RNA sequence: GUGGCUGGGCCAGGGGCUGCAACACAGGACAUGGGAGCUAGCUGCAAAUCCUGCUCGUGUCUUGUGUUGCAGCCAGUGGAACAGU
Number, nucleotide and partner (000 for none) at each position: 001g000002u000003g000004g000005c000006u000007g000008g000009g000010c000011c078012a077013g000014g000015g074016g073017c072018u071019g000020c069021a068022a067023c066024a065025c064026a063027g062028g061029a060030c059031a000032u057033g056034g055035g054036a000037g000038c000039u000040a000041g000042c000043u000044g000045c000046a000047a000048a000049u000050c000051c000052u000053g000054c035055u034056c033057g032058u000059g030060u029061c028062u027063u026064g025065u024066g023067u022068u021069g020070c000071a018072g017073c016074c015075a000076g000077u012078g011079g000080a000081a000082c000083a000084g000085u000